[Rfam]
RNA: Purine riboswitch aptamer
Organism: Halalkalibacter okhensis
RNA sequence: UAAAAUAGCUACUUCUAAUUUCGUAUAACCUUGAGUAAUAUGGACCGAGGGUAUCUACUUGGAACCGUAAAUUCCUAGCUACGAAAAAUGUGUGUGAUUGC
Numbered sequence: 001u002a003a004a005a006u007a008g009c010u011a012c013u014u015c016u017a018a019u020u021u022c023g024u025a026u027a028a029c030c031u032u033g034a035g036u037a038a039u040a041u042g043g044a045c046c047g048a049g050g051g052u053a054u055c056u057a058c059u060u061g062g063a064a065c066c067g068u069a070a071a072u073u074c075c076u077a078g079c080u081a082c083g084a085a086a087a088a089u090g091u092g093u094g095u096g097a098u099u100g101c
Base pairs, nucleotide, nucleotide: 019086020085021084022083023082024081025080029050030049031048032047033046035045036044059077061075062074063073064072